[Rfam]
RNA sequence: GCGGGUGGCUGGAUGACCGCGGGAACUUCCCGAGGAAAGUCCGGACUCCACGAGGCAACGGUGCCGGGUAACGCCCGGCCGGGGAAACCCGAGGGAAAGCGCCACAGAGAACAGACCGCCCCGCAAGGGGUAAGGGUGAAACGGUGGGGUAAGAGCCCACCGCGCCCCUGGCAACAGGGGCGGCACGGCAAGCCCCACCGGGAGCAAUGCCAAAUAGGGGCCCCGCGCGGCGCGUCCGCAGGGCGGCUUCGGCCCAGGGGCCCGGGUUGGCAGCAUGAGCGGUACGGCAACGUGCCGCCCAGAUGAAUGGUCAUCCAGGGGGUCGCCCCCGGACAGAAUCCGGCUUACAGGCUGCCCGCGCGA
Numbered sequence: 001g002c003g004g005g006u007g008g009c010u011g012g013a014u015g016a017c018c019g020c021g022g023g024a025a026c027u028u029c030c031c032g033a034g035g036a037a038a039g040u041c042c043g044g045a046c047u048c049c050a051c052g053a054g055g056c057a058a059c060g061g062u063g064c065c066g067g068g069u070a071a072c073g074c075c076c077g078g079c080c081g082g083g084g085a086a087a088c089c090c091g092a093g094g095g096a097a098a099g100c101g102c103c104a105c106a107g108a109g110a111a112c113a114g115a116c117c118g119c120c121c122c123g124c125a126a127g128g129g130g131u132a133a134g135g136g137u138g139a140a141a142c143g144g145u146g147g148g149g150u151a152a153g154a155g156c157c158c159a160c161c162g163c164g165c166c167c168c169u170g171g172c173a174a175c176a177g178g179g180g181c182g183g184c185a186c187g188g189c190a191a192g193c194c195c196c197a198c199c200g201g202g203a204g205c206a207a208u209g210c211c212a213a214a215u216a217g218g219g220g221c222c223c224c225g226c227g228c229g230g231c232g233c234g235u236c237c238g239c240a241g242g243g244c245g246g247c248u249u250c251g252g253c254c255c256a257g258g259g260g261c262c263c264g265g266g267u268u269g270g271c272a273g274c275a276u277g278a279g280c281g282g283u284a285c286g287g288c289a290a291c292g293u294g295c296c297g298c299c300c301a302g303a304u305g306a307a308u309g310g311u312c313a314u315c316c317a318g319g320g321g322g323u324c325g326c327c328c329c330c331g332g333a334c335a336g337a338a339u340c341c342g343g344c345u346u347a348c349a350g351g352c353u354g355c356c357c358g359c360g361c362g363a
Stems, first nucleotide, its partner, number of pairs: 001359010011348001012315007020032005037346003041343005046204004054250002059200005064078005079093001080091004094195002099193002101189003116135002118131005143161006162184001163182008208272004218263006242255002279298008

Bacterial RNase P class A: a 363-nucleotide RNA sequence from Rhodovulum imhoffii. Its family is annotated with tRNA processing, ribonuclease P activity and dimeric ribonuclease P complex in the Gene Ontology. Lineage of the source: Bacteria > Pseudomonadati > Rhodobacterales > Paracoccaceae > Rhodovulum. It scores 286 bits against the family's covariance model.